[Rfam]
RNA sequence: CUUCUGCAUCCUCGCGACUAAUGACAACCCUAACCCGCCCCUGCGAAUCAAGCCUCUCAUUAGCCGCGCGAACCUCUGCACGAAGAUCAUUAAUAGCAACAAUACAUGAGUUUUUAGUGAAUUGCUGCCGCCCGGUCGAAAAAAGGGGCCGUGAGGCCCCUUCUU
Number, nucleotide and partner (000 for none) at each position: 001c085002u084003u083004c082005u000006g079007c078008a077009u000010c000011c000012u000013c070014g069015c068016g067017a000018c063019u062020a061021a060022u059023g058024a057025c000026a000027a000028c000029c000030c000031u000032a000033a000034c000035c000036c000037g000038c000039c000040c000041c000042u000043g000044c000045g000046a000047a000048u000049c000050a000051a000052g000053c000054c000055u000056c000057u024058c023059a022060u021061u020062a019063g018064c000065c000066g000067c016068g015069c014070g013071a000072a000073c000074c000075u000076c000077u008078g007079c006080a000081c000082g004083a003084a002085g001086a000087u000088c000089a000090u000091u120092a000093a000094u000095a000096g000097c000098a000099a000100c000101a000102a000103u000104a000105c000106a000107u000108g000109a000110g000111u000112u000113u000114u000115u000116a000117g000118u000119g000120a091121a000122u000123u000124g000125c000126u000127g000128c000129c000130g000131c000132c000133c000134g000135g000136u000137c000138g000139a000140a000141a000142a000143a000144a000145g160146g159147g158148g157149c156150c155151g000152u000153g000154a000155g150156g149157c148158c147159c146160c145161u000162u000163c000164u000165u000
The family of this 165-nucleotide RNA from Klebsiella indica is "SraG RNA". The family's RNA type in Rfam is small RNA. This RNA was discovered in E. coli during a large scale screen. Lineage of the source: Bacteria > Pseudomonadota > Enterobacterales > Enterobacteriaceae > Klebsiella. Gene Ontology terms of the family: sRNA-mediated gene silencing and mRNA binding.